RNA sequence: CUCUAAUACAAAUUUUCAGAUGUUAUAUUUUAAGGAAUAUUUCCAGUAAAUGUAUUAGUCUUAAAGAGAUUUAUUCCUUCCAAAAUUGCAAAAGCAACAAGGUAAAAAUGUAUCAGUAAAAUAGAUAUUAGUAGAAUUCCGAUUUGAAUAUAUCUAUUUUAC
Numbered sequence: 001c002u003c004u005a006a007u008a009c010a011a012a013u014u015u016u017c018a019g020a021u022g023u024u025a026u027a028u029u030u031u032a033a034g035g036a037a038u039a040u041u042u043c044c045a046g047u048a049a050a051u052g053u054a055u056u057a058g059u060c061u062u063a064a065a066g067a068g069a070u071u072u073a074u075u076c077c078u079u080c081c082a083a084a085a086u087u088g089c090a091a092a093a094g095c096a097a098c099a100a101g102g103u104a105a106a107a108a109u110g111u112a113u114c115a116g117u118a119a120a121a122u123a124g125a126u127a128u129u130a131g132u133a134g135a136a137u138u139c140c141g142a143u144u145u146g147a148a149u150a151u152a153u154c155u156a157u158u159u160u161a162c
Base pairs, nucleotide, nucleotide: 003058004057005056006055007054008053009052013049014048022043025040026039027038028037029036030035080102081101116162117161118160119159120158121157122156123155124154125153126152127151128150135144136143
About this RNA: Rfam assigns this 162-nucleotide sequence to the family "RT-14 RNA". It is annotated as a small RNA. Rfam's curators put it in the seed alignment.